The family of this 82-nucleotide sequence from Trichogramma brassicae is "mir-981 microRNA precursor family". The organism belongs to Trichogramma, within Eukaryota. Rfam 15.1 lists 180 matches to the family in 170 species. For this family Rfam cites "Bioinformatic prediction, deep sequencing of microRNAs and expression analysis during phenotypic plasticity in the pea aphid, Acyrthosiphon pisum" (Legeai et al., BMC Genomics, 2010). The family's consensus secondary structure was predicted with RNAalifold. Its family is annotated with miRNA-mediated post-transcriptional gene silencing and RISC complex in the Gene Ontology.

RNA sequence: AAGCAGACGUACGGGUUUCGUGGCAAGCGAGCCGUACCCAUUGAUAUUGGUUCGUUGUCGACGAAACUUGCACGAUUUGUGA
Numbered sequence: 001a002a003g004c005a006g007a008c009g010u011a012c013g014g015g016u017u018u019c020g021u022g023g024c025a026a027g028c029g030a031g032c033c034g035u036a037c038c039c040a041u042u043g044a045u046a047u048u049g050g051u052u053c054g055u056u057g058u059c060g061a062c063g064a065a066a067c068u069u070g071c072a073c074g075a076u077u078u079g080u081g082a
Base pairs, nucleotide, nucleotide: 003080004079005078006077012070013069014068015067016066017065018064019063020062029053030052031051032050033049